[Rfam]
A member of the RNA family "c-di-GMP-I riboswitch aptamer" from Smithella sp. SCADC, 91 nucleotides long. A search with the family's covariance model found it, with a score of 78 bits. The source organism's lineage runs through Bacteria, Pseudomonadati, Syntrophales, Smithellaceae and Smithella.
RNA sequence: GCUUGAGAAGGGCAAACCGUCUGAAAAGGCGGGACGCAAAGUUACUGGCCUAAGUCUUUUAUAAAGAGGAUAAGGUGGCAGAACUGCCGGG
Numbered sequence: 001g002c003u004u005g006a007g008a009a010g011g012g013c014a015a016a017c018c019g020u021c022u023g024a025a026a027a028g029g030c031g032g033g034a035c036g037c038a039a040a041g042u043u044a045c046u047g048g049c050c051u052a053a054g055u056c057u058u059u060u061a062u063a064a065a066g067a068g069g070a071u072a073a074g075g076u077g078g079c080a081g082a083a084c085u086g087c088c089g090g091g
Base pairs, nucleotide, nucleotide: 012037013036017032018031019030020029021028022027040085041084042083043082045081046080047079048076049075050074055070056069057068058067059066060065